This 118-nucleotide sequence from Hymenobacter ginkgonis belongs to the Rfam family "SAM riboswitch aptamer (S box leader)". The match comes from Rfam's covariance-model search (64 bits). Taxonomically the source falls in Hymenobacter (Bacteria, Pseudomonadati, Cytophagia, Hymenobacteraceae). Rfam links the family to the GO term regulation of gene expression.
[Rfam]
RNA sequence: GUUUUAUACAGAAGCGGCGAGAGAUUAGGCUCCGUGACCCGCUGGCAACCUUCACCUGCUGAAAGGUGCCAAUUCCUACCCCAGUGCCGCUAGCUAGCGCGCCGGGGGGCUAUAAAUC
Numbered sequence: 001g002u003u004u005u006a007u008a009c010a011g012a013a014g015c016g017g018c019g020a021g022a023g024a025u026u027a028g029g030c031u032c033c034g035u036g037a038c039c040c041g042c043u044g045g046c047a048a049c050c051u052u053c054a055c056c057u058g059c060u061g062a063a064a065g066g067u068g069c070c071a072a073u074u075c076c077u078a079c080c081c082c083a084g085u086g087c088c089g090c091u092a093g094c095u096a097g098c099g100c101g102c103c104g105g106g107g108g109g110c111u112a113u114a115a116a117u118c
Base pairs, nucleotide, nucleotide: 001118003116004115005114006113007112008111013043014042015041016040017039021032022031023030026078027077028076029075044070045069046068047067049066050065051063052062053061054060079107080106081105082104084102085101086100087099